RNA: PhotoRC-I RNA
Organism: Synechococcus sp. WH 7803
RNA sequence: UGGCAGGGCAUCCUGCCCUUCCGUAACCGCUCUUCGGAGCA
Numbered sequence: 001u002g003g004c005a006g007g008g009c010a011u012c013c014u015g016c017c018c019u020u021c022c023g024u025a026a027c028c029g030c031u032c033u034u035c036g037g038a039g040c041a
Base pairs, nucleotide, nucleotide: 002022003021005019006018007017008016009015029040030039031038032037